[Rfam]
RNA sequence: AUAUAUUUUGUAAAAAAAAAAAAAAAAUCUGUUCUUAUCAGUUUAAUAUCUGAUACGUCCCCCAUCGGGGGACUACAUAUUAAAUGGAUUUUUCGAACAGGGAGUCGGAAAUGGGGCUUGCUCCGUCCGCUCCACGCAUCGACCCGGUAUUGCAGUACCUCCGGGAAUGGUGCAACACUU
Numbered sequence: 001a002u003a004u005a006u007u008u009u010g011u012a013a014a015a016a017a018a019a020a021a022a023a024a025a026a027a028u029c030u031g032u033u034c035u036u037a038u039c040a041g042u043u044u045a046a047u048a049u050c051u052g053a054u055a056c057g058u059c060c061c062c063c064a065u066c067g068g069g070g071g072a073c074u075a076c077a078u079a080u081u082a083a084a085u086g087g088a089u090u091u092u093u094c095g096a097a098c099a100g101g102g103a104g105u106c107g108g109a110a111a112u113g114g115g116g117c118u119u120g121c122u123c124c125g126u127c128c129g130c131u132c133c134a135c136g137c138a139u140c141g142a143c144c145c146g147g148u149a150u151u152g153c154a155g156u157a158c159c160u161c162c163g164g165g166a167a168u169g170g171u172g173c174a175a176c177a178c179u180u
Stems, first nucleotide, its partner, number of pairs: 003008001036055006057073007101133005107127002113124004136173006143165005